This 419-nucleotide part of an RNA from Melanomma pulvis-pyrius belongs to the Rfam family "Eukaryotic large subunit ribosomal RNA". A search with the family's covariance model found it, with a score of 2400 bits. Its family is annotated with ribosome and structural constituent of ribosome in the Gene Ontology. NCBI's taxonomy places the organism under Eukaryota, Dikarya, Pleosporales, Melanommataceae, Melanomma pulvis-pyrius. The literature on the family includes a 2001 paper in Science by Yusupov et al., "Crystal structure of the ribosome at 5.5 A resolution".
RNA sequence: GAAGACUCUAUUAAGCUUAACUCUAGUUUAACAUUGUAAAAAGACAUAGAGAGUAUAAAAUAAGUAGAAGCUUUAGCGCUAGUAAAAUACUACUAUCUUUAUUGUUUUUUUACUUAUUUAAUAAAGCAGAACUAGGUCUUACUACCUAAUUUCUAGCGUAAAGGUUCUUUGUAGGCCAAUCUAAGUUAAAGACAUUGUUAGGUAGAGAGUUUGGCUAGAGCAGCACAUCUGUUAAACUAUAACACAAGUGUUCUAAGAGGGACUUAUAGAGAACAGAAAUCUCUAGUAGAGCAAAAAGGCAAAAGUCUCCUUGAUUUUAAUUUUUAGUGUAAAUACAAACUAUAAAAGUGUAGCCUAUUAAUUCUUUAGUUUCUUAAAAUUUAAGGCUAGAGGUGCUAGAAAAGUUACUAUAGAGAUAA
Numbered sequence: 001g002a003a004g005a006c007u008c009u010a011u012u013a014a015g016c017u018u019a020a021c022u023c024u025a026g027u028u029u030a031a032c033a034u035u036g037u038a039a040a041a042a043g044a045c046a047u048a049g050a051g052a053g054u055a056u057a058a059a060a061u062a063a064g065u066a067g068a069a070g071c072u073u074u075a076g077c078g079c080u081a082g083u084a085a086a087a088u089a090c091u092a093c094u095a096u097c098u099u100u101a102u103u104g105u106u107u108u109u110u111u112a113c114u115u116a117u118u119u120a121a122u123a124a125a126g127c128a129g130a131a132c133u134a135g136g137u138c139u140u141a142c143u144a145c146c147u148a149a150u151u152u153c154u155a156g157c158g159u160a161a162a163g164g165u166u167c168u169u170u171g172u173a174g175g176c177c178a179a180u181c182u183a184a185g186u187u188a189a190a191g192a193c194a195u196u197g198u199u200a201g202g203u204a205g206a207g208a209g210u211u212u213g214g215c216u217a218g219a220g221c222a223g224c225a226c227a228u229c230u231g232u233u234a235a236a237c238u239a240u241a242a243c244a245c246a247a248g249u250g251u252u253c254u255a256a257g258a259g260g261g262a263c264u265u266a267u268a269g270a271g272a273a274c275a276g277a278a279a280u281c282u283c284u285a286g287u288a289g290a291g292c293a294a295a296a297a298g299g300c301a302a303a304a305g306u307c308u309c310c311u312u313g314a315u316u317u318u319a320a321u322u323u324u325u326a327g328u329g330u331a332a333a334u335a336c337a338a339a340c341u342a343u344a345a346a347a348g349u350g351u352a353g354c355c356u357a358u359u360a361a362u363u364c365u366u367u368a369g370u371u372u373c374u375u376a377a378a379a380u381u382u383a384a385g386g387c388u389a390g391a392g393g394u395g396c397u398a399g400a401a402a403a404g405u406u407a408c409u410a411u412a413g414a415g416a417u418a419a
Stems, first nucleotide, its partner, number of pairs: 007414004012410002014406005020210004027202007036113010046102007063094005070077002117190005128182003135146003163177004213226001214224003227249002230246003252353001259309005264290002267285006291300002315339003320334004341350003364392006372386004